[Rfam]
RNA sequence: AGGGAGGUGAUGAUCCUUUCCCCACAUGAUCGACUAUGAUUAUAUCGUGCUUUUUGUAAUUUUUUCUUCUCUAAUUCGGGGAGAAAUCAAGCCAGGAUUCUGAUCCUA
Numbered sequence: 001a002g003g004g005a006g007g008u009g010a011u012g013a014u015c016c017u018u019u020c021c022c023c024a025c026a027u028g029a030u031c032g033a034c035u036a037u038g039a040u041u042a043u044a045u046c047g048u049g050c051u052u053u054u055u056g057u058a059a060u061u062u063u064u065u066c067u068u069c070u071c072u073a074a075u076u077c078g079g080g081g082a083g084a085a086a087u088c089a090a091g092c093c094a095g096g097a098u099u100c101u102g103a104u105c106c107u108a
Stems, first nucleotide, its partner, number of pairs: 002107004
A member of the RNA family "Small nucleolar RNA Z103" from Cocos nucifera, 108 nucleotides long. It scores 81 bits against the family's covariance model. For this family Rfam cites "The high diversity of snoRNAs in plants: identification and comparative study of 120 snoRNA genes from Oryza sativa" (Chen et al., Nucleic Acids Res, 2003). By type it is a C/D-box small nucleolar RNA. The base pairs follow the family's consensus structure, which was predicted with PFOLD.